Mitochondrial DNA control region secondary structure A: a 114-nucleotide RNA from Macaca mulatta. The family has 53 seed sequences and 795 matches in Rfam 15.1. Lineage of the source: Eukaryota > Deuterostomia > Craniata > Cercopithecidae > Macaca. By type it is an antisense RNA.

[Rfam]
RNA sequence: UACUUUUCUCAGCACACAUUUUAACUACCACGUCAGUAUUAAUAAACUAACACUAAUACAUUAGUGCUUCUGUGUACUUCGUGCAUUACUGUUAGUCCCCAGGAAUAAUAUAUU
Numbered sequence: 001u002a003c004u005u006u007u008c009u010c011a012g013c014a015c016a017c018a019u020u021u022u023a024a025c026u027a028c029c030a031c032g033u034c035a036g037u038a039u040u041a042a043u044a045a046a047c048u049a050a051c052a053c054u055a056a057u058a059c060a061u062u063a064g065u066g067c068u069u070c071u072g073u074g075u076a077c078u079u080c081g082u083g084c085a086u087u088a089c090u091g092u093u094a095g096u097c098c099c100c101a102g103g104a105a106u107a108a109u110a111u112a113u114u
Base pairs, nucleotide, nucleotide: 005105006104007103008102009101012097016092017091018090022035024033025032026030036067037066040063041062042061072086073085074084075083076082